[Rfam]
RNA: MIR2118 microRNA precursor family
RNA sequence: GCAGGGAAGAGGAAGAAAGAUAGAGCAUAAGAGCACUAGGAAUGGGAACAUGGAGGAAAGCUUAACUUAUUUGUUUUCACCUCUAAUGUUGGAGGUGCAUAUAUUGUUUUGUGCUUUUCUGAUGUCUCCCAUUUCUAUGGUUCUUGAGCACUCCUUCCUCUCCCCUUUUGCU
Dot-bracket structure: ........(.(((.(((....((..(.(((((((..(((((((((((.(((.(.(((((((...................................................)))))))).)))..)))))))))))..))))))).)..))..))).))).).........